The family of this 95-nucleotide RNA sequence from Scyliorhinus torazame is "mir-146 microRNA precursor family". The organism belongs to Scyliorhinus, within Eukaryota. The match comes from Rfam's covariance-model search (61 bits). The literature on the family includes a 2002 paper in Curr Biol by Lagos-Quintana et al., "Identification of tissue-specific microRNAs from mouse".
RNA sequence: AAGUUGCCCCCAGCUGUGAGAACUGAAUUCCAUGAGUUGUUCGAGCUACUGUUUCUCAGCCCAUGGUUCUCAGUUCUGCAGCUUGGAAGCAUUUU
Numbered sequence: 001a002a003g004u005u006g007c008c009c010c011c012a013g014c015u016g017u018g019a020g021a022a023c024u025g026a027a028u029u030c031c032a033u034g035a036g037u038u039g040u041u042c043g044a045g046c047u048a049c050u051g052u053u054u055c056u057c058a059g060c061c062c063a064u065g066g067u068u069c070u071c072a073g074u075u076c077u078g079c080a081g082c083u084u085g086g087a088a089g090c091a092u093u094u095u
Stems, first nucleotide, its partner, number of pairs: 009086002012083003019077008034062001036060004
Dot-bracket structure: ........((.(((....((((((((.......(.((((.................)))).).......))))))))...))).)).........